[Rfam]
RNA sequence: CGGGUGGUACGCGACUGGCGGCACGGGGAUGGGUGAACCAUCGGGGAGCUCGUCGCGGGGGUCGACCGCCUGGGCCUCCGUG
Numbered sequence: 001c002g003g004g005u006g007g008u009a010c011g012c013g014a015c016u017g018g019c020g021g022c023a024c025g026g027g028g029a030u031g032g033g034u035g036a037a038c039c040a041u042c043g044g045g046g047a048g049c050u051c052g053u054c055g056c057g058g059g060g061g062u063c064g065a066c067c068g069c070c071u072g073g074g075c076c077u078c079c080g081u082g
Base pairs, nucleotide, nucleotide: 004056005055006054007053008052011049012048015045016044017070018069019068020067021066029041030040031039032038059077060076061075062074063073